The record is a 96-nucleotide RNA sequence from Treponema vincentii, which matches "TD-2 RNA" in Rfam. It scores 57 bits against the family's covariance model.
Nucleotides: 096
Stems, first nucleotide, its partner, number of pairs: 001018006034060010063096014
Number, partner (000 for none) and nucleotide at each position: 001018a002017c003016g004015c005014c006013c007000a008000a009000g010000g011000a012000c013006g014005g015004g016003c017002g018001u019000g020000g021000u022000u023000g024000c025000a026000c027000g028000c029000a030000g031000u032000a033000g034060c035059g036058a037057g038056a039055u040054u041053u042052g043051a044000g045000c046000g047000c048000c049000g050000g051043u052042c053041a054040a055039a056038u057037c058036u059035c060034g061000u062000c063096g064095u065094u066093g067092a068091g069090c070089a071088g072087u073086g074085u075084a076083c077000a078000c079000g080000g081000a082000a083076g084075u085074a086073c087072a088071c089070u090069g091068c092067u093066c094065a095064a096063c

Background
By type it is a small RNA. Lineage of the source: Bacteria > Spirochaetota > Treponematales > Treponemataceae > Treponema vincentii.